Rfam assigns this 139-nucleotide sequence from Hordeum vulgare to the family "Small nucleolar RNA snoR2/U65". The organism belongs to Hordeum vulgare, within Eukaryota. The family is grouped with related families in Rfam's "SNORA65 clan". The family's consensus secondary structure was predicted with WAR. It scores 65 bits against the family's covariance model.
RNA sequence: GGCCUAAUGGUCCUUCUCUGGUAGUUACCAGCAUUGACCAGGGGAUCUAUAUUUGGGCCAACAAUUACUUUUCACUCAUUGAUAGGAACCUGGAACUUGAUUCUGUUAGUCUGUGGAUCCUAUUAUUGUGAUUAAAUGG
Numbered sequence: 001g002g003c004c005u006a007a008u009g010g011u012c013c014u015u016c017u018c019u020g021g022u023a024g025u026u027a028c029c030a031g032c033a034u035u036g037a038c039c040a041g042g043g044g045a046u047c048u049a050u051a052u053u054u055g056g057g058c059c060a061a062c063a064a065u066u067a068c069u070u071u072u073c074a075c076u077c078a079u080u081g082a083u084a085g086g087a088a089c090c091u092g093g094a095a096c097u098u099g100a101u102u103c104u105g106u107u108a109g110u111c112u113g114u115g116g117a118u119c120c121u122a123u124u125a126u127u128g129u130g131a132u133u134a135a136a137u138g139g
Base pairs, nucleotide, nucleotide: 002058003057004056005055006054007053009050014045015044016043017042018041020039021038022037024032025031026030072131073130074129075128085120086119090116091115092114093112095110096109097108